[Rfam]
About this RNA
Plastid-ycf3 group II-D1 intron: a 44-nucleotide RNA from Nicotiana sylvestris. Rfam's curators write: Plastid rpl16 is a non-coding RNA (ncRNA) recognised in plastids. It was recognised in and intronic region of a ribosome rpl16 gene. The family's consensus secondary structure was predicted with LocARNA. The organism belongs to Nicotiana, within Eukaryota. For this family Rfam cites "Retrograde signaling in plants: A critical review focusing on the GUN pathway and beyond" (Richter et al., Plant Commun, 2023). The match comes from Rfam's covariance-model search (56 bits).
RNA sequence: AUUUUUUCUGUUGUGUAUUCUCGAUUAAUGCAACCUCAGAUGCU
Numbered sequence: 001a002u003u004u005u006u007u008c009u010g011u012u013g014u015g016u017a018u019u020c021u022c023g024a025u026u027a028a029u030g031c032a033a034c035c036u037c038a039g040a041u042g043c044u
Stems, first nucleotide, its partner, number of pairs: 010025004032044001034042001